Rfam assigns this 114-nucleotide sequence from Kineosporia babensis to the family "SAM (S-adenosyl methionine) riboswitch aptamer". NCBI's taxonomy places the organism under Bacteria, Bacillati, Actinomycetes, Kineosporiales, Kineosporia. For this family Rfam cites "The aptamer core of SAM-IV riboswitches mimics the ligand-binding site of SAM-I riboswitches" (Weinberg et al., RNA, 2008). The base pairs follow the family's consensus structure, which is taken from published work. From the family's description: SAM-IV is a mRNA element that regulates gene expression via direct sensing of S-adenosylmethionine (SAM or AdoMet). Its family is annotated with regulation of gene expression and S-adenosylmethionine metabolic process in the Gene Ontology.
[Rfam]
RNA sequence: GGUCAUGAGCGCCAGCGACAAGCCCCGGCUCGCUGGCCGGCAACCCUCCUCCGCGGUGGGGUGCUCCGGGUGAAGACCUGGCGGUGGCCAAACGGUCCGCCGCAAGCGCGGACC
Numbered sequence: 001g002g003u004c005a006u007g008a009g010c011g012c013c014a015g016c017g018a019c020a021a022g023c024c025c026c027g028g029c030u031c032g033c034u035g036g037c038c039g040g041c042a043a044c045c046c047u048c049c050u051c052c053g054c055g056g057u058g059g060g061g062u063g064c065u066c067c068g069g070g071u072g073a074a075g076a077c078c079u080g081g082c083g084g085u086g087g088c089c090a091a092a093c094g095g096u097c098c099g100c101c102g103c104a105a106g107c108g109c110g111g112a113c114c
Base pairs, nucleotide, nucleotide: 001078002077003076004075009038011037012036013035014034015033016032021030022029039065040064041063044061045060046059048056049055081103082102083101084100085099086098087097088095089094
It scores 109 bits against the family's covariance model.